A member of the RNA family "mir-932 microRNA precursor family" from Pseudolycoriella hygida, 74 nucleotides long. Pairs were carried over by alignment from the consensus structure, which was predicted with RNAalifold. NCBI's taxonomy places the organism under Eukaryota, Diptera, Bibionomorpha, Sciaridae, Pseudolycoriella. It scores 67 bits against the family's covariance model. On this family, see Berezikov et al., Nat Genet 2010: "Evolutionary flux of canonical microRNAs and mirtrons in Drosophila".

[Rfam]
RNA sequence: UUAGGCGUCAAUUCCGUAGUGCAUUGCAGUGUGUUAAGAACCAACUGCAAGCACGGCGGGAGUGAAGUUUAAUA
Numbered sequence: 001u002u003a004g005g006c007g008u009c010a011a012u013u014c015c016g017u018a019g020u021g022c023a024u025u026g027c028a029g030u031g032u033g034u035u036a037a038g039a040a041c042c043a044a045c046u047g048c049a050a051g052c053a054c055g056g057c058g059g060g061a062g063u064g065a066a067g068u069u070u071a072a073u074a
Stems, first nucleotide, its partner, number of pairs: 006067001008065003013060005020053003024050005